[Rfam]
RNA sequence: CUGAUUUUCUCUUUGGUUAUCUAGCUGUAUGAGAGAAUUUAAUGUCAUAAAGCUAGAUUACCAAAGUUAAGAACAG
Dot-bracket structure: (((.(.((..(((((((.((((((((.(((((............))))).)))))))).)))))))..)).).)))

A member of the RNA family "mir-9/mir-79 microRNA precursor family" from Armadillidium nasatum, 76 nucleotides long. Lineage of the source: Eukaryota > Metazoa > Arthropoda > Oniscidea > Armadillidium. Its family is annotated with RISC complex and miRNA-mediated post-transcriptional gene silencing in the Gene Ontology. Rfam 15.1 lists 5,647 matches to the family in 934 species. The base pairs follow the family's consensus structure, which was predicted with RNAalifold. The literature on the family includes a 2001 paper in Science by Lagos-Quintana et al., "Identification of novel genes coding for small expressed RNAs".